[Rfam]
RNA sequence: CUCAAUGAAGCGCUUUGUCCACGUGGACAUAAAGCACACCCACAAGGAUGCGUUUUUUGUCCACGUGGACAAAAUGCUUCCUUAAGG
Numbered sequence: 001c002u003c004a005a006u007g008a009a010g011c012g013c014u015u016u017g018u019c020c021a022c023g024u025g026g027a028c029a030u031a032a033a034g035c036a037c038a039c040c041c042a043c044a045a046g047g048a049u050g051c052g053u054u055u056u057u058u059g060u061c062c063a064c065g066u067g068g069a070c071a072a073a074a075u076g077c078u079u080c081c082u083u084a085a086g087g
Stems, first nucleotide, its partner, number of pairs: 001086002004083002007080006014073008023064007031056005037050002040047002